[Rfam]
RNA sequence: UCCUCGCUCAAAGAAUCGCAACGAAGCACACGCACAGAGCGCCUCUCGGGGUGUCUCUUCCCACGCUUUGGGGAAAGUCCCCGGACAACGAUCAUCGCGAUCGCACUUUCAGCAACGAACCGCCAUAGAAGCCGCGGCUUCCAACCGAUCACGACAUUUCUCGCAUCUCUUUAUCCGUCUGCACUCUUUUCGACAGCUUUCACGAGGCUGCAGGGUGGGGAUCUGGCACUUGGAUGAUGAUAUGAGUCCGCUGGUGACCCGGUCUGCGUGCUGAAGGUUCGCUGGAGAUUGGAGGAGGAGGGAGUUGUUGGGAGGUGCCAGGUAUGGAGGGUCUUCUCGUCCAGUUUAUGGUUAUGCGAUUGCCUCCUUUGCGCUUCGGUCACACGGGGUGUCUAGGAGGUAACUCAAUGGGGCUCAUUCUUGAGGCGAGG
Number, nucleotide and partner (000 for none) at each position: 001u000002c431003c430004u429005c428006g427007c426008u424009c423010a422011a421012a000013g000014a361015a360016u359017c358018g357019c356020a000021a000022c070023g069024a068025a067026g066027c065028a000029c000030a000031c000032g000033c000034a000035c000036a000037g000038a000039g054040c053041g052042c051043c050044u049045c000046u000047c000048g000049g044050g043051g042052u041053g040054u039055c000056u000057c000058u000059u000060c000061c000062c000063a000064c000065g027066c026067u025068u024069u023070g022071g000072g000073g000074a000075a000076a415077g414078u000079c413080c412081c411082c410083g000084g000085a000086c000087a000088a000089c000090g000091a000092u000093c000094a000095u000096c000097g000098c000099g000100a000101u000102c000103g000104c000105a000106c000107u000108u000109u000110c000111a000112g000113c000114a000115a000116c000117g000118a000119a000120c000121c000122g000123c000124c000125a000126u000127a000128g000129a000130a000131g000132c000133c000134g000135c000136g000137g000138c000139u000140u000141c000142c000143a000144a000145c000146c000147g000148a000149u000150c000151a000152c000153g000154a000155c000156a000157u000158u000159u000160c000161u000162c000163g000164c000165a000166u000167c000168u000169c000170u000171u000172u000173a000174u000175c000176c000177g000178u000179c000180u000181g000182c000183a000184c000185u000186c000187u000188u000189u000190u000191c000192g000193a000194c000195a000196g000197c000198u000199u000200u000201c000202a000203c000204g000205a000206g000207g000208c000209u000210g000211c000212a000213g000214g000215g000216u000217g000218g000219g000220g000221a000222u000223c000224u000225g000226g000227c000228a000229c000230u000231u000232g000233g000234a000235u000236g000237a000238u000239g000240a000241u000242a000243u000244g000245a000246g000247u000248c000249c000250g000251c000252u000253g000254g000255u000256g333257a332258c331259c000260c000261g000262g000263u000264c329265u328266g000267c326268g325269u324270g000271c321272u320273g319274a000275a000276g000277g000278u000279u000280c317281g316282c315283u314284g000285g000286a000287g000288a000289u000290u000291g000292g000293a000294g000295g000296a000297g000298g000299a000300g000301g000302g000303a000304g000305u000306u000307g000308u000309u000310g000311g000312g000313a000314g283315g282316u281317g280318c000319c273320a272321g271322g000323u000324a269325u268326g267327g000328a265329g264330g000331g258332u257333c256334u000335u000336c000337u000338c000339g000340u000341c000342c000343a000344g000345u000346u000347u000348a000349u000350g000351g000352u000353u000354a000355u000356g019357c018358g017359a016360u015361u014362g000363c400364c399365u398366c397367c396368u395369u000370u000371g000372c000373g000374c000375u000376u000377c000378g000379g000380u000381c000382a000383c000384a000385c000386g000387g000388g000389g000390u000391g000392u000393c000394u000395a368396g367397g366398a365399g364400g363401u000402a000403a000404c000405u000406c000407a000408a000409u000410g082411g081412g080413g079414c077415u076416c000417a000418u000419u000420c000421u011422u010423g009424a008425g000426g007427c006428g005429a004430g003431g002
Rfam assigns this 431-nucleotide RNA sequence from Pyrenophora tritici-repentis to the family "RNase MRP".